Small nucleolar RNA SNORD35: a 94-nucleotide RNA from Alligator mississippiensis. Pairs were carried over by alignment from the consensus structure, which was predicted with PFOLD. Its family is annotated with RNA processing and nucleolus in the Gene Ontology. Rfam 15.1 lists 1,842 matches to the family in 634 species. The family's RNA type in Rfam is C/D-box small nucleolar RNA. Rfam's curators write: U35 is a C/D box snoRNA located in intron 6 of ribosomal protein L13A and intron 3 of ribosomal protein S11 in humans and at homologous positions in mouse and chicken ribosomal protein genes. U35 guides the methylation of 2'-O-ribose sites in 28S rRNA. A reference for the family is Nicoloso et al. (1996), "Intron-encoded, antisense small nucleolar RNAs: the characterization of nine novel species points to their direct role as guides for the 2'-O-ribose methylation of rRNAs", J Mol Biol. Lineage of the source: Eukaryota > Opisthokonta > Eumetazoa > Vertebrata > Alligator.
[Rfam]
RNA sequence: GACACAUGAUGUUUGUUCUCACGAUGGUCUUCCAAGUCCCAGUGGUGAAGGGGCUUUGACGACAGCUGCCAAAUGGCCUUACUGAUGUCAGGAA
Numbered sequence: 001g002a003c004a005c006a007u008g009a010u011g012u013u014u015g016u017u018c019u020c021a022c023g024a025u026g027g028u029c030u031u032c033c034a035a036g037u038c039c040c041a042g043u044g045g046u047g048a049a050g051g052g053g054c055u056u057u058g059a060c061g062a063c064a065g066c067u068g069c070c071a072a073a074u075g076g077c078c079u080u081a082c083u084g085a086u087g088u089c090a091g092g093a094a
Stems, first nucleotide, its partner, number of pairs: 001089004
Dot-bracket structure: ((((.................................................................................)))).....